The family of this 113-nucleotide sequence from Listeria welshimeri is "Listeria LhrC". By type it is a small RNA. The family has 12 seed sequences and 13 matches in Rfam 15.1. Rfam describes the family as follows. This RNA was identifed by screening for RNA molecules which co-immunoprecipitated with the RNA chaperone Hfq. However, neither the stability nor the activity of LhrC is depending on the presence of Hfq. LhrC is transcribed from the intergenic region between the protein coding genes cysK, a putative cysteine synthase and sul, a putative dihydropteroate synthase. The organism belongs to Listeria welshimeri, within Bacteria. The family is grouped with related families in Rfam's "LhrC clan". On this family, see Christiansen et al., RNA 2006: "Identification of small Hfq-binding RNAs in Listeria monocytogenes".
[Rfam]
RNA sequence: AUAAGCUAACAACAAGCAAAACAUUUUCAUUCUUCCUCCCCCUAUUAGAAUGAAAAUCCCAACUCCCUUUUUUGACCGAUGCGGUUUACUCCCUUUUCCGCAUCGGUUUUUUU
Numbered sequence: 001a002u003a004a005g006c007u008a009a010c011a012a013c014a015a016g017c018a019a020a021a022c023a024u025u026u027u028c029a030u031u032c033u034u035c036c037u038c039c040c041c042c043u044a045u046u047a048g049a050a051u052g053a054a055a056a057u058c059c060c061a062a063c064u065c066c067c068u069u070u071u072u073u074g075a076c077c078g079a080u081g082c083g084g085u086u087u088a089c090u091c092c093c094u095u096u097u098c099c100g101c102a103u104c105g106g107u108u109u110u111u112u113u
Stems, first nucleotide, its partner, number of pairs: 023057010076106009